Small nucleolar RNA SNORA31: a 136-nucleotide RNA sequence from Nomascus leucogenys. The base pairs follow the family's consensus structure, which was predicted with RNAalifold. About the family: ACA31 (SNORA31) belongs to the H/ACA class of snoRNAs which are thought to guide the sites of modification of uridines to pseudouridines. ACA31 is predicted to guide the pseudouridylation of U3713 in 28S rRNA and U218 in 18S rRNA. This family includes the mouse homologue snoMBI-161. Rfam 15.1 lists 2,094 matches to the family in 626 species. Lineage of the source: Eukaryota > Opisthokonta > Chordata > Amniota > Nomascus. By type it is an H/ACA-box small nucleolar RNA.

RNA sequence: CUGCAUCCACUGAUAGACCUUGGACAGUUUGCUGUUGUUGAUUUUUUUUUGGUUUGCUCUGGGAAUGCAAAAGAGGGAAAUUCCUGCACUUCCUGUCUGUCUUUGUGGCAGCCCGGAUUGAACUGGGGAUGCAUCU
Numbered sequence: 001c002u003g004c005a006u007c008c009a010c011u012g013a014u015a016g017a018c019c020u021u022g023g024a025c026a027g028u029u030u031g032c033u034g035u036u037g038u039u040g041a042u043u044u045u046u047u048u049u050u051g052g053u054u055u056g057c058u059c060u061g062g063g064a065a066u067g068c069a070a071a072a073g074a075g076g077g078a079a080a081u082u083c084c085u086g087c088a089c090u091u092c093c094u095g096u097c098u099g100u101c102u103u104u105g106u107g108g109c110a111g112c113c114c115g116g117a118u119u120g121a122a123c124u125g126g127g128g129a130u131g132c133a134u135c136u
Stems, first nucleotide, its partner, number of pairs: 002069005007063002012057001014056006022046001023039006081129006089120001093116003097111005